[Rfam]
RNA: Small nucleolar RNA SNORA43
Organism: Pelodiscus sinensis
RNA sequence: UGGGUCCCUGCCCUGAGUCGUACAAGAUGGCUGCCAUGUCAUCUUUGGUCUGCAGGGGGCAUAGAGUAAGGGGGCUUUGUCUACACUCAGUGUUCUGAAACCCUUGAGCACUCAGAAUGGUUAAUAGCCUUACAUUU
Number, nucleotide and partner (000 for none) at each position: 001u000002g000003g000004g060005u059006c058007c056008c055009u054010g053011c000012c000013c000014u000015g000016a000017g000018u000019c000020g000021u000022a000023c047024a046025a045026g000027a000028u000029g000030g000031c000032u000033g000034c000035c000036a000037u000038g000039u000040c000041a000042u000043c000044u000045u025046u024047g023048g000049u000050c000051u000052g000053c010054a009055g008056g007057g000058g006059g005060c004061a000062u000063a000064g000065a000066g000067u000068a000069a000070g000071g000072g000073g129074g128075c127076u000077u000078u000079g000080u000081c120082u119083a118084c000085a000086c115087u114088c000089a000090g000091u110092g109093u108094u107095c106096u000097g000098a000099a000100a000101c000102c000103c000104u000105u000106g095107a094108g093109c092110a091111c000112u000113c000114a087115g086116a000117a000118u083119g082120g081121u000122u000123a000124a000125u000126a000127g075128c074129c073130u000131u000132a000133c000134a000135u000136u000137u000